[Rfam]
RNA sequence: UCGGUGACGUUCGGCGAGGUCUCCACCCGCACCCUGCCGGCAGCUGAUGCACCUUCCCCGGUGUCAGGUGCCGUGACCAGUGGUCUGCGGAUGGGGACCUGGCCGGACGGGUCGGGGUUU
Numbered sequence: 001u002c003g004g005u006g007a008c009g010u011u012c013g014g015c016g017a018g019g020u021c022u023c024c025a026c027c028c029g030c031a032c033c034c035u036g037c038c039g040g041c042a043g044c045u046g047a048u049g050c051a052c053c054u055u056c057c058c059c060g061g062u063g064u065c066a067g068g069u070g071c072c073g074u075g076a077c078c079a080g081u082g083g084u085c086u087g088c089g090g091a092u093g094g095g096g097a098c099c100u101g102g103c104c105g106g107a108c109g110g111g112u113c114g115g116g117g118u119u120u
Base pairs, nucleotide, nucleotide: 010107011106012105013104014103015102018099019098021096022095023094024093025092027090028089029088030087031084032083033082038073039072040071041070042069044067045066046065047064048063049062050061